Shown here is a 123-nucleotide RNA from Bacteroidetes bacterium UKL13-3, a member of the family "Group II catalytic intron D1-D4-2".
Taxonomically the source falls in Bacteroidota (Bacteria, Pseudomonadati).
The family has 144 seed sequences and 1,231 matches in Rfam 15.1.
The pairing is the family consensus, mapped onto this sequence.
It scores 81 bits against the family's covariance model.
Rfam describes the family as follows. Group II introns are found in rRNA, tRNA and mRNA of organelles in fungi, plants and protists, and also in mRNA in bacteria.

RNA sequence: GAGAGUAGGUCUCUCGAUGACGAUUUUCAGGAAUAGUUAUCAAACCGCCUUAUGCUGCGAGUAUUGGAAACAAGCUGGUGGUGAGCGAUAAGGUUAAAAACGGGAGCAACGACUUCUGUAGGU
Numbered sequence: 001g002a003g004a005g006u007a008g009g010u011c012u013c014u015c016g017a018u019g020a021c022g023a024u025u026u027u028c029a030g031g032a033a034u035a036g037u038u039a040u041c042a043a044a045c046c047g048c049c050u051u052a053u054g055c056u057g058c059g060a061g062u063a064u065u066g067g068a069a070a071c072a073a074g075c076u077g078g079u080g081g082u083g084a085g086c087g088a089u090a091a092g093g094u095u096a097a098a099a100a101c102g103g104g105a106g107c108a109a110c111g112a113c114u115u116c117u118g119u120a121g122g123u
Stems, first nucleotide, its partner, number of pairs: 001015005016041006023034004046122001048093006054082002057079002061075002064072001100119006